Background
A member of the RNA family "HNH endonuclease-associated RNA and ORF (HEARO) RNA" from Intestinibaculum porci, 243 nucleotides long. The family's consensus secondary structure is taken from published work. A reference for the family is Weinberg et al. (2009), "Exceptional structured noncoding RNAs revealed by bacterial metagenome analysis", Nature.
Nucleotides: 243
Base pairs, nucleotide, nucleotide: 001079002078003077004076006074007073008072010028011027012025013024015022016021029043030042031041032040082229083228084227086225087102089101090100091099092098105223106222107221108220109219110218111217112216113215114214124158125157128152130150131149132148133147134146135145138237139236140235141234142233143232160204161203162202163201164200165199166198167197168196172195173194175192176191177190178189179188
Number, partner (000 for none) and nucleotide at each position: 001079g002078u003077c004076a005000a006074c007073u008072a009000c010028c011027c012025g013024c014000g015022a016021c017000u018000a019000a020000a021016g022015u023000c024013g025012c026000a027011g028010g029043c030042u031041u032040g033000u034000c035000u036000c037000g038000c039000g040032c041031a042030g043029g044000c045000c046000u047000a048000a049000g050000a051000c052000u053000g054000g055000c056000g057000u058000c059000g060000g061000u062000a063000c064000a065000u066000a067000c068000g069000u070000a071000c072008u073007a074006g075000c076004u077003g078002a079001u080000u081000a082229g083228c084227c085000u086225a087102a088000u089101g090100u091099g092098c093000c094000u095000u096000a097000g098092g099091c100090a101089c102087u103000a104000c105223g106222u107221u108220a109219u110218c111217c112216g113215c114214a115000a116000a117000a118000a119000u120000a121000u122000a123000g124158g125157c126000a127000c128152c129000a130150g131149g132148g133147g134146a135145u136000u137000c138237u139236u140235c141234c142233c143232a144000c145135g146134u147133c148132c149131c150130u151000c152128g153000c154000u155000c156000u157125g158124c159000g160204g161203g162202c163201a164200u165199g166198c167197a168196u169000u170000a171000a172195a173194c174000a175192u176191c177190u178189c179188u180000g181000a182000c183000g184000g185000g186000c187000a188179g189178g190177a191176g192175a193000a194173g195172u196168g197167u198166g199165c200164a201163u202162g203161u204160c205000a206000u207000a208000c209000a210000c211000a212000a213000c214114u215113g216112c217111g218110g219109a220108u221107a222106a223105c224000c225086u226000u227084g228083g229082c230000g231000a232143u233142g234141g235140g236139a237138a238000c239000u240000a241000c242000c243000c